Nucleotides: 127
Stems, first nucleotide, its partner, number of pairs: 011026006028061003036054003039050002092114009
Number, partner (000 for none) and nucleotide at each position: 001000u002000g003000a004000c005000a006000a007000a008000a009000g010000c011026a012025g013024a014023a015022g016021c017000a018000c019000c020000c021016g022015c023014u024013u025012c026011u027000c028061a029060c030059c031000u032000a033000g034000c035000u036054g037053a038052c039050g040049c041000c042000a043000u044000u045000a046000g047000c048000a049040g050039c051000u052038g053037u054036u055000g056000g057000c058000a059030g060029g061028u062000u063000g064000u065000u066000a067000c068000g069000g070000u071000u072000c073000g074000g075000u076000u077000a078000u079000a080000g081000a082000g083000c084000g085000u086000a087000a088000u089000g090000a091000g092114c093113g094112u095111g096110g097109g098108u099107g100106u101000c102000g103000u104000a105000u106100g107099c108098a109097c110096c111095c112094a113093c114092g115000u116000u117000u118000u119000u120000u121000a122000u123000u124000u125000g126000g127000a